SAH (S-adenosyl-L-homocysteine) riboswitch aptamer: an 81-nucleotide RNA from Candidatus Contendibacter odensensis. The organism belongs to Candidatus Contendibacter odensensis, within Bacteria. The base pairs follow the family's consensus structure, which is taken from published work.
RNA sequence: CAUGCUGAGGGGCGCUGCAACGGUAUUCACCGUCAGGCUCGGCAUGGCACGGCUUUCACAAGCCAACGGCGCCCGUUCAAC
Dot-bracket structure: .(((((((............((((....))))......)))))))....................................